A member of the RNA family "c-di-GMP-I-GGC riboswitch aptamer" from Desulfoluna spongiiphila, 77 nucleotides long. Pairs were carried over by alignment from the consensus structure, which is taken from published work. Gene Ontology term of the family: cyclic-di-GMP binding. The literature on the family includes a 2017 paper in Proc Natl Acad Sci U S A by Weinberg et al., "Bioinformatic analysis of riboswitch structures uncovers variant classes with altered ligand specificity". Lineage of the source: Bacteria > Pseudomonadati > Thermodesulfobacteriota > Desulfobacteria > Desulfoluna.
RNA sequence: CAAGUAAAAGCCAAACCUGUAGCGAUACAGGCACGGAAAGCCACGGGUCUCACGGGGAGACAGCCGGGUUGCCUUGA
Numbered sequence: 001c002a003a004g005u006a007a008a009a010g011c012c013a014a015a016c017c018u019g020u021a022g023c024g025a026u027a028c029a030g031g032c033a034c035g036g037a038a039a040g041c042c043a044c045g046g047g048u049c050u051c052a053c054g055g056g057g058a059g060a061c062a063g064c065c066g067g068g069u070u071g072c073c074u075u076g077a
Stems, first nucleotide, its partner, number of pairs: 003074002011036002016031006034063001039070004044066003047061003